Rfam assigns this 97-nucleotide RNA sequence from Enterovibrio coralii to the family "c-di-GMP-I riboswitch aptamer". NCBI's taxonomy places the organism under Bacteria, Pseudomonadati, Pseudomonadota, Vibrionaceae, Enterovibrio. The literature on the family includes a 2007 paper in Nucleic Acids Res by Weinberg et al., "Identification of 22 candidate structured RNAs in bacteria using the CMfinder comparative genomics pipeline".
[Rfam]
RNA sequence: CACUCUUAUCGGCAAACUGUUUGAAAAAACAGGACGCAAAGCCACCGGUCUAAGGGCUCACUUCAUUGUUUGAGCUUAUGAUAGCGGGGCCGCCAUU
Numbered sequence: 001c002a003c004u005c006u007u008a009u010c011g012g013c014a015a016a017c018u019g020u021u022u023g024a025a026a027a028a029a030c031a032g033g034a035c036g037c038a039a040a041g042c043c044a045c046c047g048g049u050c051u052a053a054g055g056g057c058u059c060a061c062u063u064c065a066u067u068g069u070u071u072g073a074g075c076u077u078a079u080g081a082u083a084g085c086g087g088g089g090c091c092g093c094c095a096u097u
Base pairs, nucleotide, nucleotide: 012037013036017032018031019030020029021028022027041090042089043088045087046086047085048082049081050080055076056075057074058073059072060071